[Rfam]
RNA sequence: UUGCAAAUAGACCUUCUCUUCCCGGUUCUUCCUGGAGUCGGGAAAAGCUGGGUGGAGAGGGUGAAUAAAUAAAUAA
Numbered sequence: 001u002u003g004c005a006a007a008u009a010g011a012c013c014u015u016c017u018c019u020u021c022c023c024g025g026u027u028c029u030u031c032c033u034g035g036a037g038u039c040g041g042g043a044a045a046a047g048c049u050g051g052g053u054g055g056a057g058a059g060g061g062u063g064a065a066u067a068a069a070u071a072a073a074u075a076a
Stems, first nucleotide, its partner, number of pairs: 014059005021052005029044006
RNA: mir-320 microRNA precursor family